About this RNA:
FMN riboswitch aptamer (RFN element): a 151-nucleotide RNA from Enhydrobacter aerosaccus. Rfam's curators write: The RFN element is a highly conserved domain that is found frequently in the 5'-untranslated regions of prokaryotic mRNAs that encode for flavin mononucleotide (FMN) biosynthesis and transport proteins. The match comes from Rfam's covariance-model search (116 bits). The base pairs follow the family's consensus structure, which is taken from published work. NCBI's taxonomy places the organism under Bacteria, Pseudomonadota, Alphaproteobacteria, Hyphomicrobiales, Enhydrobacter.
Nucleotides: 151
Stems, first nucleotide, its partner, number of pairs: 003149008017029003031131002033120002035065004060118002068096002100116005122134003
Number, partner (000 for none) and nucleotide at each position: 001000a002000g003149g004148c005147g006146u007145u008144c009143u010142c011000a012000g013000g014000g015000c016000g017029g018028g019027g020000u021000g022000u023000a024000a025000u026000u027019c028018c029017c030000c031131a032130c033120c034119g035065g036064c037063g038062g039000u040000a041000a042000u043000u044000g045000c046000g047000a048000g049000a050000c051000a052000u053000c054000g055000c056000a057000u058000c059000a060118g061117c062038c063037c064036g065035c066000g067000a068096g069095c070000g071000c072000u073000c074000g075000c076000u077000c078000c079000g080000u081000c082000g083000g084000g085000a086000g087000c088000g089000a090000g091000g092000a093000c094000a095069g096068c097000a098000g099000a100116u101115u102114c103113g104112g105000u106000g107000c108000a109000a110000u111000u112104c113103c114102g115101a116100a117061g118060c119034c120033g121000a122134c123133g124132g125000u126000c127000a128000c129000a130032g131031u132124c133123c134122g135000g136000a137000u138000g139000a140000a141000a142010g143009a144008g145007a146006g147005c148004g149003u150000a151000g